This 109-nucleotide RNA sequence from Brachypodium distachyon belongs to the Rfam family "Small nucleolar RNA Z118/Z121/Z120". The base pairs follow the family's consensus structure, which was predicted with PFOLD. Rfam 15.1 lists 435 matches to the family in 31 species. It scores 100 bits against the family's covariance model. NCBI's taxonomy places the organism under Eukaryota, Viridiplantae, Poales, Brachypodieae, Brachypodium.
RNA sequence: UGCUUGCUGUGAAGAAAUCGCAAGGACGGUAUCUGAGAAAGGUGGCUCUUGAAAAAGUGCUCCUUCCUUGAUUAUAUUCCCAAAACUGAUCAAAUAUUCUGAGCAAGCA
Numbered sequence: 001u002g003c004u005u006g007c008u009g010u011g012a013a014g015a016a017a018u019c020g021c022a023a024g025g026a027c028g029g030u031a032u033c034u035g036a037g038a039a040a041g042g043u044g045g046c047u048c049u050u051g052a053a054a055a056a057g058u059g060c061u062c063c064u065u066c067c068u069u070g071a072u073u074a075u076a077u078u079c080c081c082a083a084a085a086c087u088g089a090u091c092a093a094a095u096a097u098u099c100u101g102a103g104c105a106a107g108c109a
Base pairs, nucleotide, nucleotide: 001109002108003107004106005105006104007103037067039065040064041063042062